[Rfam]
RNA sequence: UUUAUUUGAAGUAGAGAUUGUGCUGCUACGCACCCGCCGGGUCAAAAGAAAUGCAGGAAGGGGCACCCCUGCCAAAUAAA
Numbered sequence: 001u002u003u004a005u006u007u008g009a010a011g012u013a014g015a016g017a018u019u020g021u022g023c024u025g026c027u028a029c030g031c032a033c034c035c036g037c038c039g040g041g042u043c044a045a046a047a048g049a050a051a052u053g054c055a056g057g058a059a060g061g062g063g064c065a066c067c068c069c070u071g072c073c074a075a076a077u078a079a080a
Stems, first nucleotide, its partner, number of pairs: 001080008011029004020066005031048001032042004053072005